[Rfam]
RNA sequence: GGAGGCAAGUGUGCUGGUGUGCGCCUUGGGCUUCAAACCCAAAGAAGGGCUAGGUGUCUAGCUCUUGGGGAGUUCGAUUCUCUCGCCUUC
Numbered sequence: 001g002g003a004g005g006c007a008a009g010u011g012u013g014c015u016g017g018u019g020u021g022c023g024c025c026u027u028g029g030g031c032u033u034c035a036a037a038c039c040c041a042a043a044g045a046a047g048g049g050c051u052a053g054g055u056g057u058c059u060a061g062c063u064c065u066u067g068g069g070g071a072g073u074u075c076g077a078u079u080c081u082c083u084c085g086c087c088u089u090c
Stems, first nucleotide, its partner, number of pairs: 001090006009024006026042005045066007069083004
RNA: Selenocysteine transfer RNA
Organism: Helicobacter sp. TUL